[Rfam]
The record is an 82-nucleotide RNA sequence from Cicer arietinum, which matches "Small nucleolar RNA Z102/R77" in Rfam. Rfam 15.1 lists 1,346 matches to the family in 224 species. Gene Ontology terms of the family: nucleolus and RNA processing. The literature on the family includes a 2003 paper in Nucleic Acids Res by Chen et al., "The high diversity of snoRNAs in plants: identification and comparative study of 120 snoRNA genes from Oryza sativa". Rfam classes the family as a C/D-box small nucleolar RNA. The base pairs follow the family's consensus structure, which was predicted with PFOLD. Its Rfam clan is "SNORD44 clan". Taxonomically the source falls in Cicer (Eukaryota, Embryophyta, Euphyllophyta, eudicotyledons).

RNA sequence: GGAUGGAGUGAUGAAUAUUUGUUUUCCUAUUGGUUUGAUUGCCAGAAUGAUGGCAUUUUGUAUUAGCUCUAUCUGACCAUUC
Dot-bracket structure: .((((...............................(..((((........)))).)....................)))).